[Rfam]
RNA: Guanidine-II riboswitch aptamer (mini-ykkC)
RNA sequence: AGGCGAGGACGACCUAGCCUUUUGAUACAAGCAUCGGGACGGCCCGA
Numbered sequence: 001a002g003g004c005g006a007g008g009a010c011g012a013c014c015u016a017g018c019c020u021u022u023u024g025a026u027a028c029a030a031g032c033a034u035c036g037g038g039a040c041g042g043c044c045c046g047a
Stems, first nucleotide, its partner, number of pairs: 001020004006015003034047005